A member of the RNA family "Manganese Mn2+ riboswitch aptamer (yybP-ykoY)" from Sphingobium xenophagum, 191 nucleotides long. NCBI's taxonomy places the organism under Bacteria, Pseudomonadati, Sphingomonadales, Sphingobiaceae, Sphingobium. Its family is annotated with manganese ion binding in the Gene Ontology. A reference for the family is Argaman et al. (2001), "Novel small RNA-encoding genes in the intergenic regions of Escherichia coli", Curr Biol. This RNA was originally discovered in E. coli during a large scale screen and was named SraF. The family was later found to exist upstream of related families of protein genes in many bacteria, including the the yybP and ykoK genes in B. subtilis.

RNA sequence: UAGCCUGUCAUCUGGGGAGUAGCCAGCCGUUCCAGCGCAAAUGGAGCGGGCCUUAUGUCAACAUAUUUGGCCGAGAGGUCAUGGCAUGGGGGACGCGGAACAAUCUGCGUAAGGCGAGACCAAUGGCAUCGGCGCUUUUCUGUCCGGCCGGGCGGGAGGCGACGGUGGCAUUGCGUCUAUCACUUCCGCCC
Numbered sequence: 001u002a003g004c005c006u007g008u009c010a011u012c013u014g015g016g017g018a019g020u021a022g023c024c025a026g027c028c029g030u031u032c033c034a035g036c037g038c039a040a041a042u043g044g045a046g047c048g049g050g051c052c053u054u055a056u057g058u059c060a061a062c063a064u065a066u067u068u069g070g071c072c073g074a075g076a077g078g079u080c081a082u083g084g085c086a087u088g089g090g091g092g093a094c095g096c097g098g099a100a101c102a103a104u105c106u107g108c109g110u111a112a113g114g115c116g117a118g119a120c121c122a123a124u125g126g127c128a129u130c131g132g133c134g135c136u137u138u139u140c141u142g143u144c145c146g147g148c149c150g151g152g153c154g155g156g157a158g159g160c161g162a163c164g165g166u167g168g169c170a171u172u173g174c175g176u177c178u179a180u181c182a183c184u185u186c187c188g189c190c191c
Base pairs, nucleotide, nucleotide: 027049028048029047030046031045032044033043034042051091052090053089054088055087056086057085058084059083060082068081069080070079071078072077097191098190